[Rfam]
RNA sequence: AUCUUUGCGCUUGGGGCAAUAAUGCAGCUAGUGAGGUUCUAACCGAGGCGCGUCUAUUUCUGGUUGAAAACUAUUUCCAAACCCCCUCUUAGGCCUUUGGCCUUUGAGAAUUUUUGGAAGGGCUCCCUUUGGGGUAAAGCC
Dot-bracket structure: .....................((((.(((.....(((....)))..)))))))................................(((..(((((...)))))..)))............((((.............))))
RNA: U4 spliceosomal RNA
Organism: Corchorus capsularis